Record summary:
This 91-nucleotide sequence from Xenopus tropicalis belongs to the Rfam family "Small nucleolar SNORD12/SNORD106". The family is grouped with related families in Rfam's "SNORD12 clan". A reference for the family is Vitali et al. (2003), "Identification of 13 novel human modification guide RNAs", Nucleic Acids Res. The source organism's lineage runs through Eukaryota, Bilateria, Deuterostomia, Euteleostomi and Silurana. The family has 8 seed sequences and 2,264 matches in Rfam 15.1. The match comes from Rfam's covariance-model search (84 bits). Gene Ontology terms of the family: nucleolus and RNA processing.
RNA sequence: GCUGACAUGCAUGAUGACCAAACUUUUUUCCCCAACAGAUCGACAGUGUUGACUUUGUUGCUAUUAAGCCAGUUUUGUCUGAUAUGUCUGU
Numbered sequence: 001g002c003u004g005a006c007a008u009g010c011a012u013g014a015u016g017a018c019c020a021a022a023c024u025u026u027u028u029u030c031c032c033c034a035a036c037a038g039a040u041c042g043a044c045a046g047u048g049u050u051g052a053c054u055u056u057g058u059u060g061c062u063a064u065u066a067a068g069c070c071a072g073u074u075u076u077g078u079c080u081g082a083u084a085u086g087u088c089u090g091u
Base pairs, nucleotide, nucleotide: 001091002090004088005087006086007085008084009083